Notes
A member of the RNA family "6S / SsrS RNA" from Enterococcus sp. NBRC 3427, 195 nucleotides long. Rfam 15.1 lists 5,006 matches to the family in 4,638 species. It is annotated as a non-coding RNA gene. The match comes from Rfam's covariance-model search (62 bits). NCBI's taxonomy places the organism under Bacteria, Bacillati, Bacilli, Lactobacillales, Enterococcus.

[Rfam]
RNA sequence: GGAAAUCUGUGAUGUUCGAAUUGUCCUCUUUGUGUGUUGACCGAACAUUUUUAUUGAUAUCUUGGGACCCGUCUUGUGUCACUGCUGGUAACAUGCCUUAUCAUUUGGUAGUUCGAAGCUACGACCAUGGGACCCACCUGCUUGAAUUCGCGGGAUCAAUACUACAGGACAAAUAACGGCAUUAACGGAGAUUAC
Numbered sequence: 001g002g003a004a005a006u007c008u009g010u011g012a013u014g015u016u017c018g019a020a021u022u023g024u025c026c027u028c029u030u031u032g033u034g035u036g037u038u039g040a041c042c043g044a045a046c047a048u049u050u051u052u053a054u055u056g057a058u059a060u061c062u063u064g065g066g067a068c069c070c071g072u073c074u075u076g077u078g079u080c081a082c083u084g085c086u087g088g089u090a091a092c093a094u095g096c097c098u099u100a101u102c103a104u105u106u107g108g109u110a111g112u113u114c115g116a117a118g119c120u121a122c123g124a125c126c127a128u129g130g131g132a133c134c135c136a137c138c139u140g141c142u143u144g145a146a147u148u149c150g151c152g153g154g155a156u157c158a159a160u161a162c163u164a165c166a167g168g169a170c171a172a173a174u175a176a177c178g179g180c181a182u183u184a185a186c187g188g189a190g191a192u193u194a195c
Stems, first nucleotide, its partner, number of pairs: 002193002006189005012182004017178002034162007041154002064135003068131005079124002084119002091112002096108002